[Rfam]
The record is a 182-nucleotide RNA, which matches "DUF2800 RNA" in Rfam. The family's consensus secondary structure is taken from published work. By type it is a cis-regulatory element.

RNA sequence: GUCCUGAGCAAGACAUUAAACUGCUCACCACCUAAUACCGCAUUACCUGAUCACUGAUGGCUCAACGGUACCUGGUGGACAAGUUAAUACUGUAGCUGCCUUUUGAGCGGGUUUGCUGCAAUCCGAAACGGAGAAAUCUGUUUGGGUUGCGGUUCUUUUCCUGUGCCCGUAGCAGCUGCACC
Numbered sequence: 001g002u003c004c005u006g007a008g009c010a011a012g013a014c015a016u017u018a019a020a021c022u023g024c025u026c027a028c029c030a031c032c033u034a035a036u037a038c039c040g041c042a043u044u045a046c047c048u049g050a051u052c053a054c055u056g057a058u059g060g061c062u063c064a065a066c067g068g069u070a071c072c073u074g075g076u077g078g079a080c081a082a083g084u085u086a087a088u089a090c091u092g093u094a095g096c097u098g099c100c101u102u103u104u105g106a107g108c109g110g111g112u113u114u115g116c117u118g119c120a121a122u123c124c125g126a127a128a129c130g131g132a133g134a135a136a137u138c139u140g141u142u143u144g145g146g147u148u149g150c151g152g153u154u155c156u157u158u159u160c161c162u163g164u165g166c167c168c169g170u171a172g173c174a175g176c177u178g179c180a181c182c
Stems, first nucleotide, its partner, number of pairs: 028078005036070005041059005060108006093178007115153005128141005